RNA sequence: CCAGCUCAAAGGCUACGAUUGCUCACCACGCACAAGAUGGCCCUUGUCCAUCUGACAUCGCGAGCGGGUUAAGGUCUGAGGAUUUACGUCUCCUUCAAUCAGCUCUAGCAGGGCCCCGUGGUAACCGGCUGAGCGGCGUACCAGAAAAACGGUCCUUGGCCUUGAAAAGCGUCGCGGGGAUUGGGCGGGCUUCUACUCUCCAUCGGCUUUGCAUUCGGGUGGCCUUUAUCUCGCAGUGUCCUUGAUGGGCGUACGGGUCGUAUGGGGGUAACGAUACGGUCGGCCUCCGGUUGGGGAGUACGCACCGGCUUUGGUCGUGUCGCGUAACGAACCCAGAUAUGGCAAGCAUAUCCCGUCCGUGCAUGAUAAUGCCUUUUUGGCUUGGGCGUUUGCAAAGCGUCAGUACUAGACACGAUGGCGCGCUCUAUGCGAACGAGAAGGUGACCGUAUGUUCUCUCGUCUUUGGAGAAGGGCUUUGUCCUUGAGUUCACUUCGUAGCUCAUAUUUUCCUUUUGGGAAACGUGAAACUCGAUUCAGACUACUCUUGGGCUGG
Numbered sequence: 001c002c003a004g005c006u007c008a009a010a011g012g013c014u015a016c017g018a019u020u021g022c023u024c025a026c027c028a029c030g031c032a033c034a035a036g037a038u039g040g041c042c043c044u045u046g047u048c049c050a051u052c053u054g055a056c057a058u059c060g061c062g063a064g065c066g067g068g069u070u071a072a073g074g075u076c077u078g079a080g081g082a083u084u085u086a087c088g089u090c091u092c093c094u095u096c097a098a099u100c101a102g103c104u105c106u107a108g109c110a111g112g113g114c115c116c117c118g119u120g121g122u123a124a125c126c127g128g129c130u131g132a133g134c135g136g137c138g139u140a141c142c143a144g145a146a147a148a149a150c151g152g153u154c155c156u157u158g159g160c161c162u163u164g165a166a167a168a169g170c171g172u173c174g175c176g177g178g179g180a181u182u183g184g185g186c187g188g189g190c191u192u193c194u195a196c197u198c199u200c201c202a203u204c205g206g207c208u209u210u211g212c213a214u215u216c217g218g219g220u221g222g223c224c225u226u227u228a229u230c231u232c233g234c235a236g237u238g239u240c241c242u243u244g245a246u247g248g249g250c251g252u253a254c255g256g257g258u259c260g261u262a263u264g265g266g267g268g269u270a271a272c273g274a275u276a277c278g279g280u281c282g283g284c285c286u287c288c289g290g291u292u293g294g295g296g297a298g299u300a301c302g303c304a305c306c307g308g309c310u311u312u313g314g315u316c317g318u319g320u321c322g323c324g325u326a327a328c329g330a331a332c333c334c335a336g337a338u339a340u341g342g343c344a345a346g347c348a349u350a351u352c353c354c355g356u357c358c359g360u361g362c363a364u365g366a367u368a369a370u371g372c373c374u375u376u377u378u379g380g381c382u383u384g385g386g387c388g389u390u391u392g393c394a395a396a397g398c399g400u401c402a403g404u405a406c407u408a409g410a411c412a413c414g415a416u417g418g419c420g421c422g423c424u425c426u427a428u429g430c431g432a433a434c435g436a437g438a439a440g441g442u443g444a445c446c447g448u449a450u451g452u453u454c455u456c457u458c459g460u461c462u463u464u465g466g467a468g469a470a471g472g473g474c475u476u477u478g479u480c481c482u483u484g485a486g487u488u489c490a491c492u493u494c495g496u497a498g499c500u501c502a503u504a505u506u507u508u509c510c511u512u513u514u515g516g517g518a519a520a521c522g523u524g525a526a527a528c529u530c531g532a533u534u535c536a537g538a539c540u541a542c543u544c545u546u547g548g549g550c551u552g553g
Stems, first nucleotide, its partner, number of pairs: 001553004007547003012499007020066005035053006076537005091179004102114004116131001118129002121126001133175007152160003500525004505520005
A member of the RNA family "Nuclear RNase P" from Phlebopus sp. FC_14, 553 nucleotides long. The family's RNA type in Rfam is ribozyme. Rfam's curators write: Ribonuclease P (RNase P) is a ubiquitous endoribonuclease, found in archaea, bacteria and eukarya as well as chloroplasts and mitochondria.